The record is a 175-nucleotide RNA sequence from Sinocyclocheilus anshuiensis, which matches "Small nucleolar RNA SNORA81" in Rfam. Its family is annotated with RNA processing and nucleolus in the Gene Ontology. Rfam classes the family as an H/ACA-box small nucleolar RNA. The literature on the family includes a 2005 paper in Nucleic Acids Res by Gu et al., "A novel experimental approach for systematic identification of box H/ACA snoRNAs from eukaryotes".

[Rfam]
RNA sequence: CCCUUCUUUUAAAAGCACCGUGCUAAAAUCGCCAGCUCAAGGCCUUCGGGCCUUGCUCUGGUGUUUAUGCUAGUACUGGUUAAUCUUAAAGAAGGAAGAGCAAAAGCAAUGAGUCUAGGGCAGACCUCUUUCUUAAUGUCUGGUGUCCAAGAUCUAGAGAUUUUGUGCCUUACAU
Numbered sequence: 001c002c003c004u005u006c007u008u009u010u011a012a013a014a015g016c017a018c019c020g021u022g023c024u025a026a027a028a029u030c031g032c033c034a035g036c037u038c039a040a041g042g043c044c045u046u047c048g049g050g051c052c053u054u055g056c057u058c059u060g061g062u063g064u065u066u067a068u069g070c071u072a073g074u075a076c077u078g079g080u081u082a083a084u085c086u087u088a089a090a091g092a093a094g095g096a097a098g099a100g101c102a103a104a105a106g107c108a109a110u111g112a113g114u115c116u117a118g119g120g121c122a123g124a125c126c127u128c129u130u131u132c133u134u135a136a137u138g139u140c141u142g143g144u145g146u147c148c149a150a151g152a153u154c155u156a157g158a159g160a161u162u163u164u165g166u167g168c169c170u171u172a173c174a175u
Stems, first nucleotide, its partner, number of pairs: 018078001021075005028068002031065001034059002038055007100168003103163003117146001119144001121142004